[Rfam]
RNA: mir-147 microRNA precursor family
RNA sequence: UCUGAAUCUAGCAGCAACAUCUCUCCACAGACUAGACUACUGGAACCAAUGUGUGGAAGUGCUUCUGCUGUAUUUUAG
Numbered sequence: 001u002c003u004g005a006a007u008c009u010a011g012c013a014g015c016a017a018c019a020u021c022u023c024u025c026c027a028c029a030g031a032c033u034a035g036a037c038u039a040c041u042g043g044a045a046c047c048a049a050u051g052u053g054u055g056g057a058a059g060u061g062c063u064u065c066u067g068c069u070g071u072a073u074u075u076u077a078g
Base pairs, nucleotide, nucleotide: 001078004075005074006073007072009070010069011068012067013066014065016063018061019060020059022057023056024055026053027052028051029050033048